sul1 RNA: a 54-nucleotide sequence from Tardiphaga sp.
RNA sequence: GUCGGACCCGAUUUGAUCGGGUGGCUCGUCCGGGCGCCUAUCCCCCGGAAAUCU
Numbered sequence: 001g002u003c004g005g006a007c008c009c010g011a012u013u014u015g016a017u018c019g020g021g022u023g024g025c026u027c028g029u030c031c032g033g034g035c036g037c038c039u040a041u042c043c044c045c046c047g048g049a050a051a052u053c054u
Base pairs, nucleotide, nucleotide: 006022007021008020009019010018011017029049030048031047032046033045034044
The family's RNA type in Rfam is riboswitch. Lineage of the source: Bacteria > Pseudomonadati > Pseudomonadota > Nitrobacteraceae > Tardiphaga.